The family of this 173-nucleotide RNA sequence from Trinickia dinghuensis is "Burkholderia RNA 14". The base pairs follow the family's consensus structure, which was predicted with RNAfold. Rfam's curators write: Co-purified with Hfq, expression confirmed by Northern blot. Rfam classes the family as a small RNA. Lineage of the source: Bacteria > Pseudomonadota > Burkholderiales > Burkholderiaceae > Trinickia. A reference for the family is Ramos et al. (2013), "Experimental identification of small non-coding regulatory RNAs in the opportunistic human pathogen Burkholderia cenocepacia J2315", Genomics.
[Rfam]
RNA sequence: GUGGGCGUCAUCACCGUGCAGCCGAGCGCGGUACCCGUGGUCACCGAACUGCCCGGCCGCACGAACGCGUUCCUCGUGGCGCAAGUGCGCGCGCGCGUCGACGGCAUCGUGCUGCGCCGCGAGUUCACCGAAGGCACCGAAGUGAAGGCGGGCCAGCGGCUCUACAAGAUCGA
Numbered sequence: 001g002u003g004g005g006c007g008u009c010a011u012c013a014c015c016g017u018g019c020a021g022c023c024g025a026g027c028g029c030g031g032u033a034c035c036c037g038u039g040g041u042c043a044c045c046g047a048a049c050u051g052c053c054c055g056g057c058c059g060c061a062c063g064a065a066c067g068c069g070u071u072c073c074u075c076g077u078g079g080c081g082c083a084a085g086u087g088c089g090c091g092c093g094c095g096c097g098u099c100g101a102c103g104g105c106a107u108c109g110u111g112c113u114g115c116g117c118c119g120c121g122a123g124u125u126c127a128c129c130g131a132a133g134g135c136a137c138c139g140a141a142g143u144g145a146a147g148g149c150g151g152g153c154c155a156g157c158g159g160c161u162c163u164a165c166a167a168g169a170u171c172g173a
Stems, first nucleotide, its partner, number of pairs: 003054005008047002011043001013041004021034001023031001056149003061143002067137001069135002072133001074131002079092004094121002097118001099116002102114005157172002160168002